Background:
Rfam assigns this 103-nucleotide RNA from Pseudothermotoga lettingae to the family "Purine riboswitch aptamer". The family's consensus secondary structure is taken from published work.
[Rfam]
RNA sequence: CCCUCCCACGGGGAAUGCCCUUGUAUAAUUCCGAGAAUAGGGCUCGGAAGUCUCUACCGGACAGCCGUAAACUGUCCUGGCUACAAGGGCCUUAUCUUUUAUC
Numbered sequence: 001c002c003c004u005c006c007c008a009c010g011g012g013g014a015a016u017g018c019c020c021u022u023g024u025a026u027a028a029u030u031c032c033g034a035g036a037a038u039a040g041g042g043c044u045c046g047g048a049a050g051u052c053u054c055u056a057c058c059g060g061a062c063a064g065c066c067g068u069a070a071a072c073u074g075u076c077c078u079g080g081c082u083a084c085a086a087g088g089g090c091c092u093u094a095u096c097u098u099u100u101a102u103c
Stems, first nucleotide, its partner, number of pairs: 018089008029049007058079001059077006
NCBI's taxonomy places the organism under Bacteria, Thermotogota, Thermotogae, Pseudothermotoga, Pseudothermotoga lettingae.